[Rfam]
RNA sequence: AAGCGUUACAACUCAUUCCCGAUAGGAUUCACGCUUUUAGUGAAGAUGCCUUGUAACCACAAAUAUAAUGAAUGGGGGAAUUUUAUUAUG
Dot-bracket structure: ...............(((((...(((.(((((.......)))))....))).....((...............)))))))..........